RNA sequence: CAAGGUGAGGGCAAUGAAGUCUGCCCGAAUCGCCCGUCGAUGAAAGUCGGGCUGAUGACUUCUACUCUGCC
Numbered sequence: 001c002a003a004g005g006u007g008a009g010g011g012c013a014a015u016g017a018a019g020u021c022u023g024c025c026c027g028a029a030u031c032g033c034c035c036g037u038c039g040a041u042g043a044a045a046g047u048c049g050g051g052c053u054g055a056u057g058a059c060u061u062c063u064a065c066u067c068u069g070c071c
Base pairs, nucleotide, nucleotide: 010025011024012023013022016062017061018060019059020058021057032052033051034050035049
This 71-nucleotide RNA from Thermodesulforhabdus norvegica belongs to the Rfam family "Fluoride riboswitch aptamer (crcB RNA motif)".